[Rfam]
This 62-nucleotide RNA from Propithecus coquereli belongs to the Rfam family "U7 small nuclear RNA". Rfam describes the family as follows. Animal histone pre-mRNAs are spliced by a different mechanism than nuclear pre-mRNAs and self-splicing introns.
RNA sequence: UAUAAUAACAGCUCUUUUAAAAUUUGUCUAGCAGGUUUUCUGGUUUUUAUUGGAAAACCCCC
Numbered sequence: 001u002a003u004a005a006u007a008a009c010a011g012c013u014c015u016u017u018u019a020a021a022a023u024u025u026g027u028c029u030a031g032c033a034g035g036u037u038u039u040c041u042g043g044u045u046u047u048u049a050u051u052g053g054a055a056a057a058c059c060c061c062c
Base pairs, nucleotide, nucleotide: 034059035058036057037056038055039054040053041052042051043050044049